[Rfam]
Nucleotides: 076
Base pairs, nucleotide, nucleotide: 004073005072007070009068010067013063014062015061016060017059018058019057020056022054023053024052025051026050027049029048030047031046032045033044
Number, partner (000 for none) and nucleotide at each position: 001000u002000a003000a004073g005072c006000u007070g008000u009068g010067c011000a012000a013063a014062a015061g016060u017059g018058c019057u020056u021000a022054u023053a024052g025051u026050g027049c028000a029048g030047g031046u032045a033044g034000c035000c036000a037000u038000u039000a040000g041000c042000a043000c044033c045032u046031a047030c048029c049027g050026c051025a052024c053023u054022a055000g056020g057019a058018g059017c060016a061015c062014u063013u064000c065000c066000a067010g068009c069000a070007u071000u072005g073004c074000u075000g076000u